[Rfam]
RNA sequence: UCAUCACACAGGCCGAAUCCUGCAAAGCAGGUACGGGGGACGCUUUUGCGCAGCAAACCUGCGCUUGGGGUGAAAGCGACUUAUGUCGCAAGGAUGACCUCGACCCAAACCCGACAACUAACCUCGAAGGCCACAGGAGGAAAACAU
Numbered sequence: 001u002c003a004u005c006a007c008a009c010a011g012g013c014c015g016a017a018u019c020c021u022g023c024a025a026a027g028c029a030g031g032u033a034c035g036g037g038g039g040a041c042g043c044u045u046u047u048g049c050g051c052a053g054c055a056a057a058c059c060u061g062c063g064c065u066u067g068g069g070g071u072g073a074a075a076g077c078g079a080c081u082u083a084u085g086u087c088g089c090a091a092g093g094a095u096g097a098c099c100u101c102g103a104c105c106c107a108a109a110c111c112c113g114a115c116a117a118c119u120a121a122c123c124u125c126g127a128a129g130g131c132c133a134c135a136g137g138a139g140g141a142a143a144a145c146a147u
Base pairs, nucleotide, nucleotide: 011132012131013130014129019031020030034126035125036124037123038122043067068112069111070110076089077088078087079086092106093105095103